Nucleotides: 067
Base pairs, nucleotide, nucleotide: 010026011025012024013023016058017057018056019055020054034048035047036046037045
Number, partner (000 for none) and nucleotide at each position: 001000c002000a003000u004000c005000c006000u007000g008000a009000a010026g011025g012024c013023g014000a015000u016058g017057g018056g019055g020054u021000a022000c023013c024012g025011c026010c027000u028000c029000u030000a031000a032000c033000c034048g035047c036046g037045u038000c039000u040000a041000a042000a043000a044000a045037g046036c047035g048034c049000u050000g051000a052000u053000g054020a055019c056018u057017c058016c059000u060000a061000c062000a063000u064000a065000u066000c067000u
The family of this 67-nucleotide sequence from Edaphobacter albus is "Fluoride riboswitch aptamer (crcB RNA motif)". The base pairs follow the family's consensus structure, which is taken from published work. The match comes from Rfam's covariance-model search (53 bits).